[Rfam]
RNA sequence: AAUUGGAGAACGACAAAUUAGGUUUUUCCUCCUGAUUUUCUUUUUCUUUUUUCAAAAAAAAAAAAUUUAAUCUAAUUGAAAAUGCUAAAAAUCAGGAGGAAAAUUUUGAUUUGUCAUUCUCCUAUU
Numbered sequence: 001a002a003u004u005g006g007a008g009a010a011c012g013a014c015a016a017a018u019u020a021g022g023u024u025u026u027u028c029c030u031c032c033u034g035a036u037u038u039u040c041u042u043u044u045u046c047u048u049u050u051u052u053c054a055a056a057a058a059a060a061a062a063a064a065a066u067u068u069a070a071u072c073u074a075a076u077u078g079a080a081a082a083u084g085c086u087a088a089a090a091a092u093c094a095g096g097a098g099g100a101a102a103a104u105u106u107u108g109a110u111u112u113g114u115c116a117u118u119c120u121c122c123u124a125u126u
Stems, first nucleotide, its partner, number of pairs: 001126003005122006012115011024103004029098011045082001047080002
This 126-nucleotide RNA sequence from Gossypium schwendimanii belongs to the Rfam family "MIR7504 microRNA precursor family".
Pairs were carried over by alignment from the consensus structure, which was predicted with RNAalifold.
A search with the family's covariance model found it, with a score of 90 bits.